[Rfam]
RNA: skipping-rope RNA
RNA sequence: UUACUUUGAGGACGGAACAGGCAGCCGUCACACCUUCUAGGUCUUAAAAGAGAUGCAGGAUUGCCACCCUGCCAAAUGAC
Numbered sequence: 001u002u003a004c005u006u007u008g009a010g011g012a013c014g015g016a017a018c019a020g021g022c023a024g025c026c027g028u029c030a031c032a033c034c035u036u037c038u039a040g041g042u043c044u045u046a047a048a049a050g051a052g053a054u055g056c057a058g059g060a061u062u063g064c065c066a067c068c069c070u071g072c073c074a075a076a077u078g079a080c
Stems, first nucleotide, its partner, number of pairs: 001079003005075002008073001011029005020065004031050001032042004055072005